Shown here is a 112-nucleotide RNA from Oceanobacillus halophilus, a member of the family "epsC RNA".
Rfam 15.1 lists 450 matches to the family in 334 species.
Rfam classes the family as a cis-regulatory element.
The base pairs follow the family's consensus structure, which is taken from published work.

RNA sequence: AGGUGAUGCCUCCUUACCUUUAUCAAUGGAGGUACUCGGCUGUGCUGUGGGUUGUAUAGGACCUUAGACACUUGUUGUCAGGAGCGUGGUGUGAGGUGGGGUUGGAUGCCCU
Numbered sequence: 001a002g003g004u005g006a007u008g009c010c011u012c013c014u015u016a017c018c019u020u021u022a023u024c025a026a027u028g029g030a031g032g033u034a035c036u037c038g039g040c041u042g043u044g045c046u047g048u049g050g051g052u053u054g055u056a057u058a059g060g061a062c063c064u065u066a067g068a069c070a071c072u073u074g075u076u077g078u079c080a081g082g083a084g085c086g087u088g089g090u091g092u093g094a095g096g097u098g099g100g101g102u103u104g105g106a107u108g109c110c111c112u
Stems, first nucleotide, its partner, number of pairs: 001019004007034007035095004039090008049064005067079004098112005